Source information
Lysine riboswitch aptamer: a 183-nucleotide RNA from Tindallia californiensis. Rfam describes the family as follows. Riboswitches are metabolite binding domains within certain messenger RNAs that serve as precision sensors for their corresponding targets. Allosteric rearrangement of mRNA structure is mediated by ligand binding, and this results in modulation of gene expression. The base pairs follow the family's consensus structure, which is taken from published work. The organism belongs to Tindallia, within Bacteria.

RNA sequence: UAGAUCGAUAGAGGAUGCGCUAAGAAAAAGUAGAAAUUCGGAUGAUAAGAGGUAAGCACUCAAUGCCGAUUUUCAAAAGGUCUGGGCGCCGAAGUUUCUGAACAUGCUUUCGUUCAUGAAACUGGGAGCAAUUGCGAAUAGCGUUGCUACUGUCAUGGAUGCCCAUGGAGUGCUAUUGGAAGA
Numbered sequence: 001u002a003g004a005u006c007g008a009u010a011g012a013g014g015a016u017g018c019g020c021u022a023a024g025a026a027a028a029a030g031u032a033g034a035a036a037u038u039c040g041g042a043u044g045a046u047a048a049g050a051g052g053u054a055a056g057c058a059c060u061c062a063a064u065g066c067c068g069a070u071u072u073u074c075a076a077a078a079g080g081u082c083u084g085g086g087c088g089c090c091g092a093a094g095u096u097u098c099u100g101a102a103c104a105u106g107c108u109u110u111c112g113u114u115c116a117u118g119a120a121a122c123u124g125g126g127a128g129c130a131a132u133u134g135c136g137a138a139u140a141g142c143g144u145u146g147c148u149a150c151u152g153u154c155a156u157g158g159a160u161g162c163c164c165a166u167g168g169a170g171u172g173c174u175a176u177u178g179g180a181a182g183a
Base pairs, nucleotide, nucleotide: 006178007177008176009175010174011173017089018088019087020086021085023083024082025081033074034073035072036071038069039068040067093123094122095121096120097119098118099116100115101114102113103112124151125150127148128147129146130145131144132143153168154167155166156165157164158163